Shown here is a 123-nucleotide RNA from Aminobacter sp. J15, a member of the family "Rhizobiales sRNA Atu_C8".
RNA sequence: CAUGAUCAAGAGCACCAUUCUUGUAGUACGAACGCGUAUGGGCAAGGCGGCGUAGCCGCCGGGCGACAGCACCCCAUGCGCGAAACCGAGGCUCCUCCAAGGGGCCUUUUUUAUUGCCCUGAA
Numbered sequence: 001c002a003u004g005a006u007c008a009a010g011a012g013c014a015c016c017a018u019u020c021u022u023g024u025a026g027u028a029c030g031a032a033c034g035c036g037u038a039u040g041g042g043c044a045a046g047g048c049g050g051c052g053u054a055g056c057c058g059c060c061g062g063g064c065g066a067c068a069g070c071a072c073c074c075c076a077u078g079c080g081c082g083a084a085a086c087c088g089a090g091g092c093u094c095c096u097c098c099a100a101g102g103g104g105c106c107u108u109u110u111u112u113a114u115u116g117c118c119c120u121g122a123a
Base pairs, nucleotide, nucleotide: 030118033082034081035080036079037078038077039076040075041074042073046060047059048058049057050056063070064069089107090106091105092104093103094102095101

Taxonomically the source falls in Aminobacter (Bacteria, Alphaproteobacteria, Hyphomicrobiales, Phyllobacteriaceae). It scores 92 bits against the family's covariance model.